[Rfam]
RNA sequence: CAAGUUUGAGGAGAAAGCAGAAGUGCUCACAGUACAGUCUGUCAGAUUCCAGUGAAAUCUGCAAAUUCUGCU
Dot-bracket structure: .......[[......((((((((((.......)))..]]...((((((.......))))))....)))))))
Numbered sequence: 001c002a003a004g005u006u007u008g009a010g011g012a013g014a015a016a017g018c019a020g021a022a023g024u025g026c027u028c029a030c031a032g033u034a035c036a037g038u039c040u041g042u043c044a045g046a047u048u049c050c051a052g053u054g055a056a057a058u059c060u061g062c063a064a065a066u067u068c069u070g071c072u
Stems, first nucleotide, its partner, number of pairs: 008039002016072007023035003043061006
A member of the RNA family "Mammalian CPEB3 ribozyme" from Crocodylus porosus, 72 nucleotides long. Gene Ontology term of the family: RNA nuclease activity. The mammalian CPEB3 ribozyme is a self cleaving RNA located in the second intron of the CPEB3 gene which belongs to a family of genes regulating messenger RNA polyadenylation. This ribozyme is highly conserved and found only in mammals. The CPEB3 ribozyme is structurally and biochemically related to the human hepatitis delta virus (HDV) ribozyme and the HDV ribozyme is proposed to have arisen from the human transcriptome.